[Rfam]
RNA sequence: UAAGCAGAGAUAUGUGUGUAUCGGCUUUUUGCGAUUUCGAUGCAUUUUGUUCGAAAGAAUUCUCUGCGAUAACGAUGUGACAUAGGGAAGGUGGGCAGUUGUCUUCCAUUUUUAUAUCAAUUGGAAUGUUCAACAAUCAUCUUCCCUACAUUU
Numbered sequence: 001u002a003a004g005c006a007g008a009g010a011u012a013u014g015u016g017u018g019u020a021u022c023g024g025c026u027u028u029u030u031g032c033g034a035u036u037u038c039g040a041u042g043c044a045u046u047u048u049g050u051u052c053g054a055a056a057g058a059a060u061u062c063u064c065u066g067c068g069a070u071a072a073c074g075a076u077g078u079g080a081c082a083u084a085g086g087g088a089a090g091g092u093g094g095g096c097a098g099u100u101g102u103c104u105u106c107c108a109u110u111u112u113u114a115u116a117u118c119a120a121u122u123g124g125a126a127u128g129u130u131c132a133a134c135a136a137u138c139a140u141c142u143u144c145c146c147u148a149c150a151u152u153u
Base pairs, nucleotide, nucleotide: 004067005066006065007064008063009062010061016045017044018043019042020041021040084147085146086145087144088143089142090141091140092139093138094137098134099133100132101131

Rfam assigns this 153-nucleotide RNA sequence from Centaurea solstitialis to the family "small nucleolar RNA snoR135". The match comes from Rfam's covariance-model search (113 bits). A reference for the family is Chen and Wu (2009), "Mining small RNA sequencing data: a new approach to identify small nucleolar RNAs in Arabidopsis", Nucleic Acids Res. Rfam links the family to the GO terms nucleolus and RNA processing.